Background: The record is an 86-nucleotide RNA sequence from Thetidibacter halocola, which matches "Glycine riboswitch aptamer" in Rfam. Rfam's curators write: This family represents the bacterial glycine riboswitch. The base pairs follow the family's consensus structure. Gene Ontology term of the family: glycine biosynthetic process.
Nucleotides: 086
Stems, first nucleotide, its partner, number of pairs: 006081004011076003019031004033066003036062002040060003046054002
Number, partner (000 for none) and nucleotide at each position: 001000c002000c003000a004000u005000u006081c007080a008079u009078g010000a011076c012075g013074g014000g015000a016000g017000a018000a019031c020030c021029g022028g023000u024000u025000c026000a027000u028022c029021c030020g031019g032000u033066g034065c035064c036062g037061a038000a039000g040060g041059c042058g043000c044000a045000a046054c047053c048000g049000c050000c051000c052000c053047g054046g055000a056000a057000a058042c059041g060040c061037u062036c063000a064035g065034g066033c067000c068000a069000a070000a071000g072000g073000a074013c075012c076011g077000a078009c079008a080007u081006g082000g083000a084000a085000c086000a